[Rfam]
RNA sequence: GCCCGGGUCAUCUGGGGAGUAGCCACCCGCGCUCCCGGUCUGCAAAGGCUUCGUGCGGGACCUGCCGUCAACAUACUUGGCCGAGAGGCCAUGGCGCGCAGGAGGACGGUCGAACCGUCC
Numbered sequence: 001g002c003c004c005g006g007g008u009c010a011u012c013u014g015g016g017g018a019g020u021a022g023c024c025a026c027c028c029g030c031g032c033u034c035c036c037g038g039u040c041u042g043c044a045a046a047g048g049c050u051u052c053g054u055g056c057g058g059g060a061c062c063u064g065c066c067g068u069c070a071a072c073a074u075a076c077u078u079g080g081c082c083g084a085g086a087g088g089c090c091a092u093g094g095c096g097c098g099c100a101g102g103a104g105g106a107c108g109g110u111c112g113a114a115c116c117g118u119c120c
Stems, first nucleotide, its partner, number of pairs: 026059007061102005066096005078091005104120006
RNA: Manganese Mn2+ riboswitch aptamer (yybP-ykoY)
Organism: Novosphingobium barchaimii